Pseudomonas sRNA P31: a 78-nucleotide RNA from Metapseudomonas resinovorans. The match comes from Rfam's covariance-model search (73 bits). NCBI's taxonomy places the organism under Bacteria, Pseudomonadota, Pseudomonadales, Pseudomonadaceae, Metapseudomonas resinovorans.
[Rfam]
RNA sequence: AGAAGACCUCCCGUAGAUCAAGGCUGAAGCAAACGCAGGUUGUAAAAAAGCGGGAUGACGUUGAUACCGUCACCCCGC
Numbered sequence: 001a002g003a004a005g006a007c008c009u010c011c012c013g014u015a016g017a018u019c020a021a022g023g024c025u026g027a028a029g030c031a032a033a034c035g036c037a038g039g040u041u042g043u044a045a046a047a048a049a050g051c052g053g054g055a056u057g058a059c060g061u062u063g064a065u066a067c068c069g070u071c072a073c074c075c076c077g078c
Base pairs, nucleotide, nucleotide: 005041007039008038009037022030024029050078051077052076053075056072057071058070059069060068